[Rfam]
About this RNA
Rfam assigns this 130-nucleotide RNA from Vicugna pacos to the family "Small nucleolar RNA SNORA22". Pairs were carried over by alignment from the consensus structure, which was predicted with RNAfold. The source organism's lineage runs through Eukaryota, Deuterostomia, Tetrapoda, Laurasiatheria and Vicugna. ACA22 is a member of the H/ACA class of snoRNA that guide the sites of modification of uridines to pseudouridines. Gene Ontology terms of the family: RNA processing and nucleolus.
RNA sequence: UUGUACAGUGGACAUCAAGCGUGCUUCAGCUCCUUGGCUUUGACUCUGUGGUAGAGCAAUGUCUGUUCUUUUCCUCUACACUGAAAGGACUACUUAUGCUUUUAAAUAUAUUCAGAACAUCAUAUUAAUG
Numbered sequence: 001u002u003g004u005a006c007a008g009u010g011g012a013c014a015u016c017a018a019g020c021g022u023g024c025u026u027c028a029g030c031u032c033c034u035u036g037g038c039u040u041u042g043a044c045u046c047u048g049u050g051g052u053a054g055a056g057c058a059a060u061g062u063c064u065g066u067u068c069u070u071u072u073c074c075u076c077u078a079c080a081c082u083g084a085a086a087g088g089a090c091u092a093c094u095u096a097u098g099c100u101u102u103u104a105a106a107u108a109u110a111u112u113c114a115g116a117a118c119a120u121c122a123u124a125u126u127a128a129u130g
Base pairs, nucleotide, nucleotide: 004050005049006048007047008046010045013042014041015037016036017035018034019033021032023030024029053069054068055067056066057065058064075116076115077114080107082105083103084102085101086100087099089097